Description: A member of the RNA family "small nucleolar RNA snoR143" from Musa acuminata, 159 nucleotides long. NCBI's taxonomy places the organism under Eukaryota, Viridiplantae, Embryophyta, Mesangiospermae, Musa acuminata. The match comes from Rfam's covariance-model search (78 bits). For this family Rfam cites "Mining small RNA sequencing data: a new approach to identify small nucleolar RNAs in Arabidopsis" (Chen and Wu, Nucleic Acids Res, 2009).
RNA sequence: CUGUUGAUGGAUAAGGUUCCUCUGGUUCUAGUGGAGGAAGCUUCACUUAAGGUGCAAAAACCAAAAGCUGUUCCACAGCAGCGGUCAGACAACCGUAGAGAUAGAUCCACAGAUGAUUUGUUUGCAAUACUUUUCAUCUACUAAUUCUGUCUCACACUU
Numbered sequence: 001c002u003g004u005u006g007a008u009g010g011a012u013a014a015g016g017u018u019c020c021u022c023u024g025g026u027u028c029u030a031g032u033g034g035a036g037g038a039a040g041c042u043u044c045a046c047u048u049a050a051g052g053u054g055c056a057a058a059a060a061c062c063a064a065a066a067g068c069u070g071u072u073c074c075a076c077a078g079c080a081g082c083g084g085u086c087a088g089a090c091a092a093c094c095g096u097a098g099a100g101a102u103a104g105a106u107c108c109a110c111a112g113a114u115g116a117u118u119u120g121u122u123u124g125c126a127a128u129a130c131u132u133u134u135c136a137u138c139u140a141c142u143a144a145u146u147c148u149g150u151c152u153c154a155c156a157c158u159u
Stems, first nucleotide, its partner, number of pairs: 002056003009047002013043003017039003021035003098153008115133002119129003